The family of this 104-nucleotide sequence from Chromohalobacter israelensis is "t44 RNA". The base pairs follow the family's consensus structure, which was predicted with LocARNA.
RNA sequence: AUGAUAACGCCUUGAAAACACACAUGCACCGUCACAUGGUCCCGGGUGCCGGGGCGACAUUCGUGUCGUCGUGGUCGGAUCCAUGGGGUGUAUGGAGGCCUAAC
Numbered sequence: 001a002u003g004a005u006a007a008c009g010c011c012u013u014g015a016a017a018a019c020a021c022a023c024a025u026g027c028a029c030c031g032u033c034a035c036a037u038g039g040u041c042c043c044g045g046g047u048g049c050c051g052g053g054g055c056g057a058c059a060u061u062c063g064u065g066u067c068g069u070c071g072u073g074g075u076c077g078g079a080u081c082c083a084u085g086g087g088g089u090g091u092a093u094g095g096a097g098g099c100c101u102a103a104c
Stems, first nucleotide, its partner, number of pairs: 023094008035085005040079003048075004
A search with the family's covariance model found it, with a score of 70 bits. NCBI's taxonomy places the organism under Bacteria, Pseudomonadati, Oceanospirillales, Chromohalobacter, Chromohalobacter israelensis.